[Rfam]
RNA sequence: CAACAUCGCUCGGGGUGUUUGCUGCGGCAGACUGAGAGGCCGCCGGGCUUGCCUGCACGGGAAUGCGCGCAGACAGGCUCAUGACCAACCCGUUGAACCUGAUCCGGAUCAUGCCGGCGUAGGAAAGCCGCUACCGCCCCUG
Dot-bracket structure: .....(.(((((((..(((((......)))))......(.............................................)...)))).....((((..((((......))))..))))..))).)............
This 142-nucleotide sequence from Andreprevotia lacus belongs to the Rfam family "TPP riboswitch aptamer (THI element)". A search with the family's covariance model found it, with a score of 59 bits. Pairs were carried over by alignment from the consensus structure, which is taken from published work.